[Rfam]
RNA sequence: AUUAAUAAUCAAGGUACGCGUACCUUAAAAAUUAAA
Numbered sequence: 001a002u003u004a005a006u007a008a009u010c011a012a013g014g015u016a017c018g019c020g021u022a023c024c025u026u027a028a029a030a031a032u033u034a035a036a
Stems, first nucleotide, its partner, number of pairs: 002035005011026005

Rfam assigns this 36-nucleotide RNA sequence from Tenacibaculum sp. SG-28 to the family "S16-Flavobacteria ribosomal protein leader". The family's consensus secondary structure is taken from published work. It is annotated as a cis-regulatory leader. Taxonomically the source falls in Tenacibaculum (Bacteria, Pseudomonadati, Flavobacteriales, Flavobacteriaceae). It scores 39 bits against the family's covariance model. A reference for the family is Eckert and Weinberg (2020), "Discovery of 20 novel ribosomal leader candidates in bacteria and archaea", BMC Microbiol.